[Rfam]
RNA sequence: GAUACGUCGCGUGACUGGCGCAUUCGCGGAGCACCGCGGGGGAGCGUGACUGAUCGACGCCGCGCGCCUGGGCAUCACCU
Numbered sequence: 001g002a003u004a005c006g007u008c009g010c011g012u013g014a015c016u017g018g019c020g021c022a023u024u025c026g027c028g029g030a031g032c033a034c035c036g037c038g039g040g041g042g043a044g045c046g047u048g049a050c051u052g053a054u055c056g057a058c059g060c061c062g063c064g065c066g067c068c069u070g071g072g073c074a075u076c077a078c079c080u
Stems, first nucleotide, its partner, number of pairs: 003053001006050007015041002017068005026037004057075001059073003
RNA: ZMP/ZTP riboswitch aptamer (pfl RNA motif)